The record is an 87-nucleotide sequence, which matches "GA-cis RNA" in Rfam. It is annotated as a small RNA.
[Rfam]
RNA sequence: GGGAGGAGGCGUCUAUGCAUCGAAGAUGCAUAUUGGAAUGACGCCGACGAAAUGUCGCCGAACGAAUGUGAGGGGACAACACCAACA
Numbered sequence: 001g002g003g004a005g006g007a008g009g010c011g012u013c014u015a016u017g018c019a020u021c022g023a024a025g026a027u028g029c030a031u032a033u034u035g036g037a038a039u040g041a042c043g044c045c046g047a048c049g050a051a052a053u054g055u056c057g058c059c060g061a062a063c064g065a066a067u068g069u070g071a072g073g074g075g076a077c078a079a080c081a082c083c084a085a086c087a
Stems, first nucleotide, its partner, number of pairs: 008045006016030005054077003058073002062069002
The sequence is in the family's curated seed alignment. The family's consensus secondary structure is taken from published work.